The record is a 319-nucleotide sequence from Candidatus Methylopumilus turicensis, which matches "Bacterial RNase P class A" in Rfam. It is annotated as a ribozyme. It scores 233 bits against the family's covariance model. The source organism's lineage runs through Bacteria, Pseudomonadati, Pseudomonadota, Methylophilaceae and Candidatus Methylopumilus.
RNA sequence: GAAGCUGGCUAGACAGUCGCCGCUCAGCAAUGGGGGGAGGAAAGUCCGGGCUACACAGAGCAGGAUGACGGCUAACGGCCGUACGCUGAAAGCUAGCAAUAGUAUAAGGCGCGGAAUAGGGCCACAGAGACGAGCGUAUUCAGUUACGGUGAAACGCGGUAACCUCCAUCCGUAGCAAGACCAAAUAGGCUGACAAUGGCGUGGCUCGCGCUGUCAGCGGGUAGGUUGCUUGAGCGUGUGAGUAAUUGCACGCCUAGAUGAAUGACUGUCACUUGUCGCAAGGCAAGCACAGAACCCGGCUUAUCGGCCAGCUUCACUU
Numbered sequence: 001g002a003a004g005c006u007g008g009c010u011a012g013a014c015a016g017u018c019g020c021c022g023c024u025c026a027g028c029a030a031u032g033g034g035g036g037g038a039g040g041a042a043a044g045u046c047c048g049g050g051c052u053a054c055a056c057a058g059a060g061c062a063g064g065a066u067g068a069c070g071g072c073u074a075a076c077g078g079c080c081g082u083a084c085g086c087u088g089a090a091a092g093c094u095a096g097c098a099a100u101a102g103u104a105u106a107a108g109g110c111g112c113g114g115a116a117u118a119g120g121g122c123c124a125c126a127g128a129g130a131c132g133a134g135c136g137u138a139u140u141c142a143g144u145u146a147c148g149g150u151g152a153a154a155c156g157c158g159g160u161a162a163c164c165u166c167c168a169u170c171c172g173u174a175g176c177a178a179g180a181c182c183a184a185a186u187a188g189g190c191u192g193a194c195a196a197u198g199g200c201g202u203g204g205c206u207c208g209c210g211c212u213g214u215c216a217g218c219g220g221g222u223a224g225g226u227u228g229c230u231u232g233a234g235c236g237u238g239u240g241a242g243u244a245a246u247u248g249c250a251c252g253c254c255u256a257g258a259u260g261a262a263u264g265a266c267u268g269u270c271a272c273u274u275g276u277c278g279c280a281a282g283g284c285a286a287g288c289a290c291a292g293a294a295c296c297c298g299g300c301u302u303a304u305c306g307g308c309c310a311g312c313u314u315c316a317c318u319u
Stems, first nucleotide, its partner, number of pairs: 001315010011304001012270007020037002023034004042302003046299005051175004058207004063171005068082005084111004114166002119164002121160003135148004179227004189218006198212005234253008
Dot-bracket structure: ((((((((((((((((((.((.((((....)))).))....[[[.[[[[[((((...[[[[.((((((((((.....))))).((((....................))))..((...(((((...........((((......)))).........)))..)))))))))))))...((((......((((((...(((((.]]]]))))))))))).....))))......((((((((....))))))))..........)))))))........................]]]]]]]].).))))))))))....